RNA sequence: GGUGGCAGGCCCACCAGGAUCUGCUGUCGGAAGUCGGUCCCAAACAACCCCGGCUGCUGUGGUAAAGAGCCAUGGUAGUGAGCGCAGGGGGAACGAUCAGACGAGAUCUGAUCCUAU
Numbered sequence: 001g002g003u004g005g006c007a008g009g010c011c012c013a014c015c016a017g018g019a020u021c022u023g024c025u026g027u028c029g030g031a032a033g034u035c036g037g038u039c040c041c042a043a044a045c046a047a048c049c050c051c052g053g054c055u056g057c058u059g060u061g062g063u064a065a066a067g068a069g070c071c072a073u074g075g076u077a078g079u080g081a082g083c084g085c086a087g088g089g090g091g092a093a094c095g096a097u098c099a100g101a102c103g104a105g106a107u108c109u110g111a112u113c114c115u116a117u
Base pairs, nucleotide, nucleotide: 001015002014003013004012005011017040018039019038020037021036023034024033025032046115048090049089050088051087052085053079054078056076057075058074060072061071062070063069095113096112097111098110099109100108
Dot-bracket structure: (((((.....))))).(((((.(((......))).))))).....(.(((((((.(((.((((.....)))).))).)).....).))))....((((((.......)))))).)..